[Rfam]
The family of this 580-nucleotide part of an RNA from Methanosphaera stadtmanae is "Archaeal small subunit ribosomal RNA". It scores 1539 bits against the family's covariance model.
RNA sequence: UGGCGGGGGAGCACCACAACGCGUGGAGCCUGCGGUUUAAUUGGAUUCAACGCCGGACAUCUCACCAGGAGCGACAGCAGAAUGAUAAUCAGGUUGAUGACCUUAUUUGACUAGCUGAGAGGAGGUGCAUGGCCGCCGUCAGCUCGUACUGUGAAGCGUCCUGUUAAGUCAGGCAACGAGCGAGACCCACGCCCUUAGUUACCAACACAAUCUCUGGAUUGGUGGGCACACUAGGGGGACCGCCAGUGAUAAACUGGAGGAAGGAGUGGACGACGGUAGGUCCGUAUGCCCCGAAUCUCCUGGGCUACACGCGGGCUACAAUGGCUAUGGCAAUGGGUUUCUGCACUGAAAAGUGAUGGUAAUCUCCUAAACAUAGUCUUAGUUCGGAUUGAGGGCUGUAACUCGCCCUCAUGAAGCUGGAAUGCGUAGUAAUCGCAUGUCACAACCGUGCGGUGAAUACGUCCCUGCUCCUUGCACACACCGCCCGUCACACCACCCAAAAAGGGUUUGGAUGAGGCCAUAAUUUUCAAAUGUUAUUGUCGAAUCUAGGUUUUUUGAGGAGGGUGAAGUCGUAACAAGG
Numbered sequence: 001u002g003g004c005g006g007g008g009g010a011g012c013a014c015c016a017c018a019a020c021g022c023g024u025g026g027a028g029c030c031u032g033c034g035g036u037u038u039a040a041u042u043g044g045a046u047u048c049a050a051c052g053c054c055g056g057a058c059a060u061c062u063c064a065c066c067a068g069g070a071g072c073g074a075c076a077g078c079a080g081a082a083u084g085a086u087a088a089u090c091a092g093g094u095u096g097a098u099g100a101c102c103u104u105a106u107u108u109g110a111c112u113a114g115c116u117g118a119g120a121g122g123a124g125g126u127g128c129a130u131g132g133c134c135g136c137c138g139u140c141a142g143c144u145c146g147u148a149c150u151g152u153g154a155a156g157c158g159u160c161c162u163g164u165u166a167a168g169u170c171a172g173g174c175a176a177c178g179a180g181c182g183a184g185a186c187c188c189a190c191g192c193c194c195u196u197a198g199u200u201a202c203c204a205a206c207a208c209a210a211u212c213u214c215u216g217g218a219u220u221g222g223u224g225g226g227c228a229c230a231c232u233a234g235g236g237g238g239a240c241c242g243c244c245a246g247u248g249a250u251a252a253a254c255u256g257g258a259g260g261a262a263g264g265a266g267u268g269g270a271c272g273a274c275g276g277u278a279g280g281u282c283c284g285u286a287u288g289c290c291c292c293g294a295a296u297c298u299c300c301u302g303g304g305c306u307a308c309a310c311g312c313g314g315g316c317u318a319c320a321a322u323g324g325c326u327a328u329g330g331c332a333a334u335g336g337g338u339u340u341c342u343g344c345a346c347u348g349a350a351a352a353g354u355g356a357u358g359g360u361a362a363u364c365u366c367c368u369a370a371a372c373a374u375a376g377u378c379u380u381a382g383u384u385c386g387g388a389u390u391g392a393g394g395g396c397u398g399u400a401a402c403u404c405g406c407c408c409u410c411a412u413g414a415a416g417c418u419g420g421a422a423u424g425c426g427u428a429g430u431a432a433u434c435g436c437a438u439g440u441c442a443c444a445a446c447c448g449u450g451c452g453g454u455g456a457a458u459a460c461g462u463c464c465c466u467g468c469u470c471c472u473u474g475c476a477c478a479c480a481c482c483g484c485c486c487g488u489c490a491c492a493c494c495a496c497c498c499a500a501a502a503a504g505g506g507u508u509u510g511g512a513u514g515a516g517g518c519c520a521u522a523a524u525u526u527u528c529a530a531a532u533g534u535u536a537u538u539g540u541c542g543a544a545u546c547u548a549g550g551u552u553u554u555u556u557g558a559g560g561a562g563g564g565u566g567a568a569g570u571c572g573u574a575a576c577a578a579g580g
Base pairs, nucleotide, nucleotide: 001478002477003475004474005473007472008471009470010469011468012467013466016462017461020426021425022424023423024422025319027317028316029315030314031313032312033311034310035308036307041056042055043054044053065303066302067301068300069299070298071297075117076116077115078114079112080111087107088106089105091103092102093101121292122291124290125289126288127287130286131285132281133280134279135277136276137275138274142181143180144179145178146177147176149156150155160173161172162171163170187269188268189267190266192237193236194235195234196233197232198231202226203225206224207223208222209220210219211218212217240260241259243257244256245255246254247253323378324377325376326375327374328373329372335366336365337364340359341358344355345354346353347352385416390411391410392409393408394407395406396405432454433453434452435451436450437449438448439447481579483576486572487571489569491566492565493564494563497560498559501556502555503554504553505552506551507550508549509548510547511546512545513544516541517540518539520537521536522535523534524533